[Rfam]
RNA sequence: AGAGGCUUCCACGACGGCGACGUUUGGGGGCCUUUCUUUUGC
Numbered sequence: 001a002g003a004g005g006c007u008u009c010c011a012c013g014a015c016g017g018c019g020a021c022g023u024u025u026g027g028g029g030g031c032c033u034u035u036c037u038u039u040u041g042c
Stems, first nucleotide, its partner, number of pairs: 003033008013024004